[Rfam]
RNA sequence: CACUCAUCACGAGGGGUAGAGGGACACGGCCCGACGACACCCCAGCAACCAGUCCGCUCCUGGACCAGGUGCUCAUUCCGUCCCGGGCGACAGCCGACCCGGGAAAGAUGACCA
Numbered sequence: 001c002a003c004u005c006a007u008c009a010c011g012a013g014g015g016g017u018a019g020a021g022g023g024a025c026a027c028g029g030c031c032c033g034a035c036g037a038c039a040c041c042c043c044a045g046c047a048a049c050c051a052g053u054c055c056g057c058u059c060c061u062g063g064a065c066c067a068g069g070u071g072c073u074c075a076u077u078c079c080g081u082c083c084c085g086g087g088c089g090a091c092a093g094c095c096g097a098c099c100c101g102g103g104a105a106a107g108a109u110g111a112c113c114a
Stems, first nucleotide, its partner, number of pairs: 004111005013043005021032003026081004044073004049069002052065004077106001082103006
Background: The record is a 114-nucleotide sequence from Aeromicrobium sp., which matches "SAM riboswitch aptamer (S box leader)" in Rfam. Pairs were carried over by alignment from the consensus structure, which is taken from published work. Lineage of the source: Bacteria > Bacillati > Actinomycetota > Propionibacteriales > Aeromicrobium.